[Rfam]
RNA sequence: CAUGGAAAGACAAUGAUGCUUAUCUUCCAAGCACAUAUCCGAAUUGUACUGUGGACACUUAAGACUGAGUCUUUUCAUU
Numbered sequence: 001c002a003u004g005g006a007a008a009g010a011c012a013a014u015g016a017u018g019c020u021u022a023u024c025u026u027c028c029a030a031g032c033a034c035a036u037a038u039c040c041g042a043a044u045u046g047u048a049c050u051g052u053g054g055a056c057a058c059u060u061a062a063g064a065c066u067g068a069g070u071c072u073u074u075u076c077a078u079u
Base pairs, nucleotide, nucleotide: 002078003077004076005075006074008072009071010070011069
RNA: Small nucleolar RNA SNORD121A